[Rfam]
A member of the RNA family "Glycine riboswitch aptamer" from Streptacidiphilus fuscans, 144 nucleotides long. This family represents the bacterial glycine riboswitch. The match comes from Rfam's covariance-model search (37 bits).

RNA sequence: UCGACUCUGGAAAGCAGGGCCGCACUGGAGCCUCUCCUGGCUGCGGGACGGUCCUCACCGACGGUGAAAGCCGGCCCCGCCGCAGCGGUACAGCGGCGGCACAGGGCCGGUGAAGCUCUCAGGUUCCAUGACAGAGGGGGAGGU
Numbered sequence: 001u002c003g004a005c006u007c008u009g010g011a012a013a014g015c016a017g018g019g020c021c022g023c024a025c026u027g028g029a030g031c032c033u034c035u036c037c038u039g040g041c042u043g044c045g046g047g048a049c050g051g052u053c054c055u056c057a058c059c060g061a062c063g064g065u066g067a068a069a070g071c072c073g074g075c076c077c078c079g080c081c082g083c084a085g086c087g088g089u090a091c092a093g094c095g096g097c098g099g100c101a102c103a104g105g106g107c108c109g110g111u112g113a114a115g116c117u118c119u120c121a122g123g124u125u126c127c128a129u130g131a132c133a134g135a136g137g138g139g140g141a142g143g144u
Stems, first nucleotide, its partner, number of pairs: 002139001005136005016055007057124003060120002064118001066116001070111008
Gene Ontology term of the family: glycine biosynthetic process.